Bacterial small subunit ribosomal RNA: a 560-nucleotide part of an RNA from Cryomorphaceae bacterium 1068. Its Rfam clan is "SSU clan". The base pairs follow the family's consensus structure, which is taken from published work. Taxonomically the source falls in Cryomorphaceae (Bacteria, Pseudomonadati, Bacteroidota, Flavobacteriia). The literature on the family includes a 2001 paper in Science by Yusupov et al., "Crystal structure of the ribosome at 5.5 A resolution".
RNA sequence: ACAACGGAGAGUUUGAUCCUGGCUCAGGAUGAACGCUAGCGGCAGGCCUAACACAUGCAAGUCGAGGGGUAACAGGGAAGCUUGCUUCCGCUGACGACCGGCGCACGGGUGCGUAACGCGUAUACAAUCUACCUCUAACUGGGGGAUAGCCCGAAGAAAUUCGGAUUAAUACCCCAUAGUAUAAAGAAUUCGCAUGUUUUCUUUAUUAAAACUCCGGUGGUUAGAGAUGAGUAUGCGUCCUAUUAGUUAGUUGGUGAGGUAACGGCUCACCAAGACUCCGAUAGGUAGGGGGUCUGAGAGGAUGAUCCCCCACACUGGUACUGAGACACGGACCAGACUCCUACGGGAGGCAGCAGUGAGGAAUAUUGGACAAUGGACGAAAGUCUGAUCCAGCCAUGCCGCGUGUAGGAAGAAUGCCCUCUGGGUUGUAAACUACUUUUAUAUGGGAAUAAACCCCCCGACGUGUCGGGGGCUGAAUGUACCAUACGAAUAAGCACCGGCUAACUCCGUGCCAGCAGCCGCGGUAAUACGGAGGGUGCAAGCGUUAUCCGGAUUUAUUG
Numbered sequence: 001a002c003a004a005c006g007g008a009g010a011g012u013u014u015g016a017u018c019c020u021g022g023c024u025c026a027g028g029a030u031g032a033a034c035g036c037u038a039g040c041g042g043c044a045g046g047c048c049u050a051a052c053a054c055a056u057g058c059a060a061g062u063c064g065a066g067g068g069g070u071a072a073c074a075g076g077g078a079a080g081c082u083u084g085c086u087u088c089c090g091c092u093g094a095c096g097a098c099c100g101g102c103g104c105a106c107g108g109g110u111g112c113g114u115a116a117c118g119c120g121u122a123u124a125c126a127a128u129c130u131a132c133c134u135c136u137a138a139c140u141g142g143g144g145g146a147u148a149g150c151c152c153g154a155a156g157a158a159a160u161u162c163g164g165a166u167u168a169a170u171a172c173c174c175c176a177u178a179g180u181a182u183a184a185a186g187a188a189u190u191c192g193c194a195u196g197u198u199u200u201c202u203u204u205a206u207u208a209a210a211a212c213u214c215c216g217g218u219g220g221u222u223a224g225a226g227a228u229g230a231g232u233a234u235g236c237g238u239c240c241u242a243u244u245a246g247u248u249a250g251u252u253g254g255u256g257a258g259g260u261a262a263c264g265g266c267u268c269a270c271c272a273a274g275a276c277u278c279c280g281a282u283a284g285g286u287a288g289g290g291g292g293u294c295u296g297a298g299a300g301g302a303u304g305a306u307c308c309c310c311c312a313c314a315c316u317g318g319u320a321c322u323g324a325g326a327c328a329c330g331g332a333c334c335a336g337a338c339u340c341c342u343a344c345g346g347g348a349g350g351c352a353g354c355a356g357u358g359a360g361g362a363a364u365a366u367u368g369g370a371c372a373a374u375g376g377a378c379g380a381a382a383g384u385c386u387g388a389u390c391c392a393g394c395c396a397u398g399c400c401g402c403g404u405g406u407a408g409g410a411a412g413a414a415u416g417c418c419c420u421c422u423g424g425g426u427u428g429u430a431a432a433c434u435a436c437u438u439u440u441a442u443a444u445g446g447g448a449a450u451a452a453a454c455c456c457c458c459c460g461a462c463g464u465g466u467c468g469g470g471g472g473c474u475g476a477a478u479g480u481a482c483c484a485u486a487c488g489a490a491u492a493a494g495c496a497c498c499g500g501c502u503a504a505c506u507c508c509g510u511g512c513c514a515g516c517a518g519c520c521g522c523g524g525u526a527a528u529a530c531g532g533a534g535g536g537u538g539c540a541a542g543c544g545u546u547a548u549c550c551g552g553a554u555u556u557a558u559u560g
Stems, first nucleotide, its partner, number of pairs: 009025005027550004032546006039402006045395002047360001052358003056355003061102003066099002069095002074092002076089005109313003118238008128230002133226007141175004149166001151164005181206007191196001211218002239285003246276003251273008288310004292303004315336005338349004366392001368391003374387005405436004416426003442486005450477001456471003494539005505534005515522002